About this RNA: Rfam assigns this 97-nucleotide RNA from Alectura lathami to the family "Small nucleolar RNA SNORD21". NCBI's taxonomy places the organism under Eukaryota, Saurischia, Aves, Megapodiidae, Alectura. The match comes from Rfam's covariance-model search (90 bits).
[Rfam]
RNA sequence: GCUACAUGAUGAUACCCCCAAGGACUGACCACUCUGUAGUAGGUCCACGGUGUGUAAAUGAUGCACCGCAUUGUUUCAAGACGGGACUGAUGGCAGC
Numbered sequence: 001g002c003u004a005c006a007u008g009a010u011g012a013u014a015c016c017c018c019c020a021a022g023g024a025c026u027g028a029c030c031a032c033u034c035u036g037u038a039g040u041a042g043g044u045c046c047a048c049g050g051u052g053u054g055u056a057a058a059u060g061a062u063g064c065a066c067c068g069c070a071u072u073g074u075u076u077c078a079a080g081a082c083g084g085g086a087c088u089g090a091u092g093g094c095a096g097c
Base pairs, nucleotide, nucleotide: 001094002093003092004091